Rfam assigns this 171-nucleotide RNA from Bacteroides sp. OM08-11 to the family "Bacteroides sRNA BTnc231". Taxonomically the source falls in Bacteroides (Bacteria, Bacteroidota, Bacteroidia, Bacteroidales). Rfam classes the family as a small RNA. Pairs were carried over by alignment from the consensus structure, which is taken from published work. The match comes from Rfam's covariance-model search (136 bits). The literature on the family includes a 2020 paper in Nat Commun by Ryan et al., "A high-resolution transcriptome map identifies small RNA regulation of metabolism in the gut microbe Bacteroides thetaiotaomicron".
RNA sequence: ACGUUUUUUUCAUAGAGAUUUAGAUUUAAGGUUAGAAGAAUUGUGGAAGUCGUGAGACUUCCCUUUUUUUCACCUUAAAAUGUUUUCCUUAUUUGUUACCGUUGGGCUAAAUGCUAAAAUCCAGUUCCGAUAAGGGAACAAAAAAGCUCUUUCGUAAGAAAGAGCUUUUUU
Dot-bracket structure: ........................((((((((..((((((....(((((((....)))))))...))))))))))))))..((..(((((((.....................................))))))).)).(((((((((((((....))))))))))))).